[Rfam]
RNA sequence: GUCGCCGUCGGACGGGGCGGGUCCUGAGGGUUGGGGAACCCGGUGAAGGAUUCGCGUCGAGCGCUGCUGGGGUCCAAGGGAGCCCUGGUGGUGCGUUCCGGCGAAGGAG
Dot-bracket structure: .....((((((((((..(((((((...(((((....)))))......)))))))..))).((((((..(((((........)))))..))))))..)))))))......
Numbered sequence: 001g002u003c004g005c006c007g008u009c010g011g012a013c014g015g016g017g018c019g020g021g022u023c024c025u026g027a028g029g030g031u032u033g034g035g036g037a038a039c040c041c042g043g044u045g046a047a048g049g050a051u052u053c054g055c056g057u058c059g060a061g062c063g064c065u066g067c068u069g070g071g072g073u074c075c076a077a078g079g080g081a082g083c084c085c086u087g088g089u090g091g092u093g094c095g096u097u098c099c100g101g102c103g104a105a106g107g108a109g
Stems, first nucleotide, its partner, number of pairs: 006103007013059003018054007028041005061094006069086005
Record summary: The family of this 109-nucleotide RNA is "Actinomyces-1 RNA". It is annotated as a small RNA. Rfam's curators put it in the seed alignment.